Bacterial RNase P class A: a 391-nucleotide RNA sequence from Pontibacter cellulosilyticus. By type it is a ribozyme.
RNA sequence: ACAGCAAGCCAUCUUAUCGCCGCGAAUUUAUUCGGGGAGGAAAGUCCGGGCAACGCAGAGCAUCCUACUUCCUAACGGGAAGGGGCUGUUUUGGAGACGAAACAGCUACAGCAAGUGCCACAGAAAAUUACCGCCUGCAGCAUGCAGGUAAGGGUGAAAAGGUGCGGUAAGAGCGCACCAGCGGCUGGGUGACCAUUCCGGCUGGGUAAACCUUAGGAGUUGAAAGACCAAAUAGGCUGGCAGCGCCUCGCUUCGGCGGGGCUAAGGGCUGCUCGUCCGAUGUCAGUGGGUAGGUCGAUGGAGCCUGUGCGCGAGUGCAGGCCUAGAUAAAUGAUAAGACGCACGCCUCCGGGCGUAGCGACAGAACCCGGCUUACAGGCUUGCUGUUAAA
Number, nucleotide and partner (000 for none) at each position: 001a387002c386003a385004g384005c383006a382007a381008g380009c379010c378011a000012u339013c338014u337015u336016a335017u334018c333019g000020c037021c036022g000023c034024g033025a032026a031027u000028u000029u000030a000031u026032u025033c024034g023035g000036g021037g020038a000039g000040g000041a000042a374043a373044g372045u000046c371047c370048g369049g368050g367051c222052a221053a220054c219055g000056c000057a000058g274059a273060g272061c271062a000063u218064c217065c216066u215067a214068c082069u081070u080071c079072c078073u000074a000075a000076c000077g000078g072079g071080a070081a069082g068083g109084g107085g106086c105087u104088g103089u102090u101091u100092u099093g098094g000095a000096g000097a000098c093099g092100a091101a090102a089103c088104a087105g086106c085107u084108a000109c083110a213111g212112c000113a000114a000115g211116u210117g207118c206119c205120a000121c000122a000123g000124a000125a000126a000127a000128u000129u000130a000131c153132c152133g149134c148135c147136u146137g145138c144139a143140g000141c000142a000143u139144g138145c137146a136147g135148g134149u133150a000151a000152g132153g131154g000155u000156g000157a000158a000159a000160a000161g179162g178163u177164g176165c175166g174167g000168u000169a000170a000171g000172a000173g000174c166175g165176c164177a163178c162179c161180a000181g202182c200183g199184g198185c000186u195187g194188g193189g000190u000191g000192a000193c188194c187195a186196u000197u000198c184199c183200g182201g000202c181203u000204g000205g119206g118207u117208a000209a000210a116211c115212c111213u110214u067215a066216g065217g064218a063219g054220u053221u052222g051223a000224a000225a000226g296227a295228c294229c293230a000231a000232a000233u000234a000235g000236g287237c286238u285239g284240g283241c282242a000243g000244c000245g000246c000247c000248u000249c000250g000251c000252u000253u000254c000255g000256g000257c000258g000259g000260g000261g000262c000263u000264a000265a000266g278267g277268g276269c275270u000271g061272c060273u059274c058275g269276u268277c267278c266279g000280a000281u000282g241283u240284c239285a238286g237287u236288g000289g000290g000291u000292a000293g229294g228295u227296c226297g000298a000299u000300g000301g000302a000303g322304c321305c320306u319307g318308u317309g316310c315311g000312c000313g000314a000315g310316u309317g308318c307319a306320g305321g304322c303323c000324u000325a000326g000327a000328u000329a000330a000331a000332u000333g018334a017335u016336a015337a014338g013339a012340c000341g000342c000343a000344c000345g000346c000347c000348u000349c000350c000351g000352g000353g000354c000355g000356u000357a000358g000359c000360g000361a000362c000363a000364g000365a000366a000367c050368c049369c048370g047371g046372c044373u043374u042375a000376c000377a000378g010379g009380c008381u007382u006383g005384c004385u003386g002387u001388u000389a000390a000391a000